[Rfam]
RNA sequence: GAAGCCUGCCAGGCCGCCGCUGGUGCCAUGGCACUGGAGGAACGUCCGGACUGCACAGGGCAGCGUAGCAGCUAACGGCUGUCCGCCGAAGACCACGGGGAACCUUCGGGAUUUCCUGGGGAAGAAGGCGAGGAUCAGAGCAACAGAGACGAGUCGCCGCCGCAAGCCGGUGGUGGGUGAAACGGGCAAUCUCUACGCGCAGCAAUACCAAGUAGGCACGCGCCGACGGUGCCCCCCGAGCGUGCGGGUAGGUAGCAUUGAGCGCCUGGGUGACCAGACGCCCAGAGGAAUGGCGGUCACGCUGGGGUUUCCCCCGGCGCACAGAAUCCGGCGUAUCGGCAGGCUUCACAC
Numbered sequence: 001g002a003a004g005c006c007u008g009c010c011a012g013g014c015c016g017c018c019g020c021u022g023g024u025g026c027c028a029u030g031g032c033a034c035u036g037g038a039g040g041a042a043c044g045u046c047c048g049g050a051c052u053g054c055a056c057a058g059g060g061c062a063g064c065g066u067a068g069c070a071g072c073u074a075a076c077g078g079c080u081g082u083c084c085g086c087c088g089a090a091g092a093c094c095a096c097g098g099g100g101a102a103c104c105u106u107c108g109g110g111a112u113u114u115c116c117u118g119g120g121g122a123a124g125a126a127g128g129c130g131a132g133g134a135u136c137a138g139a140g141c142a143a144c145a146g147a148g149a150c151g152a153g154u155c156g157c158c159g160c161c162g163c164a165a166g167c168c169g170g171u172g173g174u175g176g177g178u179g180a181a182a183c184g185g186g187c188a189a190u191c192u193c194u195a196c197g198c199g200c201a202g203c204a205a206u207a208c209c210a211a212g213u214a215g216g217c218a219c220g221c222g223c224c225g226a227c228g229g230u231g232c233c234c235c236c237c238g239a240g241c242g243u244g245c246g247g248g249u250a251g252g253u254a255g256c257a258u259u260g261a262g263c264g265c266c267u268g269g270g271u272g273a274c275c276a277g278a279c280g281c282c283c284a285g286a287g288g289a290a291u292g293g294c295g296g297u298c299a300c301g302c303u304g305g306g307g308u309u310u311c312c313c314c315c316g317g318c319g320c321a322c323a324g325a326a327u328c329c330g331g332c333g334u335a336u337c338g339g340c341a342g343g344c345u346u347c348a349c350a351c
Stems, first nucleotide, its partner, number of pairs: 001347010011336001012298007020037007042334003046331005051202004058233002063198005068082005083132001084130004133193002138191002140187002154176009206254004216245006227238003262281003266277004

Rfam assigns this 351-nucleotide RNA from Candidatus Symbiobacter mobilis to the family "Bacterial RNase P class A". Its family is annotated with dimeric ribonuclease P complex, ribonuclease P activity and tRNA processing in the Gene Ontology. The family's RNA type in Rfam is ribozyme. Taxonomically the source falls in Candidatus Symbiobacter mobilis (Bacteria, Betaproteobacteria, Burkholderiales, Candidatus Symbiobacter). A search with the family's covariance model found it, with a score of 194 bits.